[Rfam]
RNA sequence: GGUGAUGAGCGUCAGCAUCGAGCCCUGGCUUGCUGACCGGCAACCCUCCCUGCGGUGGGGUGCUCCAGGUGACAACCGGGCCGUGUCGAUCGACGCGGCAAGCGCACGGA
Dot-bracket structure: (((.....(.((((((....((......)).)))))))(((..(((.((....))..))).)))..........)))..((((((((....))))))))...........
The family of this 110-nucleotide sequence from Nakamurella flavida is "SAM (S-adenosyl methionine) riboswitch aptamer". Pairs were carried over by alignment from the consensus structure, which is taken from published work. The match comes from Rfam's covariance-model search (94 bits).